[Rfam]
RNA sequence: CGACUCCCUCGUGGUAAAGACUAACCAUCAGCCAGAAGCGAGUCUUGCAUGGGUGUCGGUAACGCCGCUUAUGAAGCGUAGACAGCGGGUACUGAAGCCGUGGGAUUGAGUCUCGAUAUCAUGUUCUUGCUGGAGACUUCAUUUUGUUGGGAAUGGGGUCCGCAUUGUUUGCACCGCUUCGGUGAGGUGCAAUCGAUCCGGCCGGGAUCUAUGACCA
Numbered sequence: 001c002g003a004c005u006c007c008c009u010c011g012u013g014g015u016a017a018a019g020a021c022u023a024a025c026c027a028u029c030a031g032c033c034a035g036a037a038g039c040g041a042g043u044c045u046u047g048c049a050u051g052g053g054u055g056u057c058g059g060u061a062a063c064g065c066c067g068c069u070u071a072u073g074a075a076g077c078g079u080a081g082a083c084a085g086c087g088g089g090u091a092c093u094g095a096a097g098c099c100g101u102g103g104g105a106u107u108g109a110g111u112c113u114c115g116a117u118a119u120c121a122u123g124u125u126c127u128u129g130c131u132g133g134a135g136a137c138u139u140c141a142u143u144u145u146g147u148u149g150g151g152a153a154u155g156g157g158g159u160c161c162g163c164a165u166u167g168u169u170u171g172c173a174c175c176g177c178u179u180c181g182g183u184g185a186g187g188u189g190c191a192a193u194c195g196a197u198c199c200g201g202c203c204g205g206g207a208u209c210u211a212u213g214a215c216c217a
Stems, first nucleotide, its partner, number of pairs: 012034003019029002022185001024183002038086002042083004046078002048073008057064002107211001108209001110208006129202006135160003140155004165196003169192007
The record is a 217-nucleotide sequence from Maribrevibacterium harenarium, which matches "Group II catalytic intron D1-D4-6" in Rfam.
Gene Ontology term of the family: Group II intron splicing.
A search with the family's covariance model found it, with a score of 139 bits.
The source organism's lineage runs through Bacteria, Pseudomonadati, Gammaproteobacteria, Oceanospirillaceae and Maribrevibacterium.